[Rfam]
RNA sequence: UAUAAAACGGGGCAAACAUAUAGCAAUGUAUGGGCGCAAAGUCGUAAAUCUUUUAUUAUUUAUAUAAAGAGAUGGUUUGACUGCAAAA
Numbered sequence: 001u002a003u004a005a006a007a008c009g010g011g012g013c014a015a016a017c018a019u020a021u022a023g024c025a026a027u028g029u030a031u032g033g034g035c036g037c038a039a040a041g042u043c044g045u046a047a048a049u050c051u052u053u054u055a056u057u058a059u060u061u062a063u064a065u066a067a068a069g070a071g072a073u074g075g076u077u078u079g080a081c082u083g084c085a086a087a088a
Stems, first nucleotide, its partner, number of pairs: 012037002017032006040082004046077002048073003056067004
c-di-GMP-I riboswitch aptamer: an 88-nucleotide RNA from Butyrivibrio sp. M55. The family's consensus secondary structure is taken from published work. It scores 51 bits against the family's covariance model. Lineage of the source: Bacteria > Bacillati > Bacillota > Lachnospirales > Butyrivibrio.